[Rfam]
RNA sequence: GAGAAAUGAUGAUACCGGAGAAUGGUUUCGCAUACAUGACUGAUCUCAUGUGAUGUUACACUUCUCUUGGCUGUCUGAUUUC
Numbered sequence: 001g002a003g004a005a006a007u008g009a010u011g012a013u014a015c016c017g018g019a020g021a022a023u024g025g026u027u028u029c030g031c032a033u034a035c036a037u038g039a040c041u042g043a044u045c046u047c048a049u050g051u052g053a054u055g056u057u058a059c060a061c062u063u064c065u066c067u068u069g070g071c072u073g074u075c076u077g078a079u080u081u082c
Stems, first nucleotide, its partner, number of pairs: 001082004

This 82-nucleotide RNA sequence from Sinocyclocheilus grahami belongs to the Rfam family "Small nucleolar RNA SNORD53/SNORD92".
The match comes from Rfam's covariance-model search (64 bits).
The pairing is the family consensus, mapped onto this sequence.
It is annotated as a C/D-box small nucleolar RNA.
The family is grouped with related families in Rfam's "SNORD52 clan".
Its family is annotated with nucleolus and RNA processing in the Gene Ontology.
Lineage of the source: Eukaryota > Deuterostomia > Chordata > Cypriniformes > Sinocyclocheilus.
On this family, see Huttenhofer et al., EMBO J 2001: "RNomics: an experimental approach that identifies 201 candidates for novel, small, non-messenger RNAs in mouse".